[Rfam]
RNA sequence: UUAAGGUUUCUUCAUUUUCGUUUAGAAUUUUUCUGGAAUUUUUGUUGUUGAAGGUUGAUGGAUAUGAUAUGAAGAUGAAGAAGAGGAAAAG
Numbered sequence: 001u002u003a004a005g006g007u008u009u010c011u012u013c014a015u016u017u018u019c020g021u022u023u024a025g026a027a028u029u030u031u032u033c034u035g036g037a038a039u040u041u042u043u044g045u046u047g048u049u050g051a052a053g054g055u056u057g058a059u060g061g062a063u064a065u066g067a068u069a070u071g072a073a074g075a076u077g078a079a080g081a082a083g084a085g086g087a088a089a090a091g
Stems, first nucleotide, its partner, number of pairs: 007083013037056007

The family of this 91-nucleotide RNA from Medicago truncatula is "MIR5298 microRNA precursor family".
Gene Ontology terms of the family: miRNA-mediated post-transcriptional gene silencing and RISC complex.
The source organism's lineage runs through Eukaryota, Streptophyta, Mesangiospermae, Pentapetalae and Medicago.